[Rfam]
RNA sequence: UAUCCCAAUGAAGAUCAUGUUAAAGUAGUGGACUGAUAUCUAUUGAUGAUUAUUCUGAGGGAUU
Numbered sequence: 001u002a003u004c005c006c007a008a009u010g011a012a013g014a015u016c017a018u019g020u021u022a023a024a025g026u027a028g029u030g031g032a033c034u035g036a037u038a039u040c041u042a043u044u045g046a047u048g049a050u051u052a053u054u055c056u057g058a059g060g061g062a063u064u
Base pairs, nucleotide, nucleotide: 002063003062004061005060006059
A member of the RNA family "Small nucleolar RNA R21" from Papaver nudicaule, 64 nucleotides long. For this family Rfam cites "Identification of 66 box C/D snoRNAs in Arabidopsis thaliana: extensive gene duplications generated multiple isoforms predicting new ribosomal RNA 2'-O-methylation sites" (Barneche et al., J Mol Biol, 2001). By type it is a C/D-box small nucleolar RNA. Rfam 15.1 lists 472 matches to the family in 146 species. Its family is annotated with nucleolus and RNA processing in the Gene Ontology. Pairs were carried over by alignment from the consensus structure, which was predicted with PFOLD. NCBI's taxonomy places the organism under Eukaryota, Streptophytina, Spermatophyta, Mesangiospermae, Papaver. The match comes from Rfam's covariance-model search (49 bits).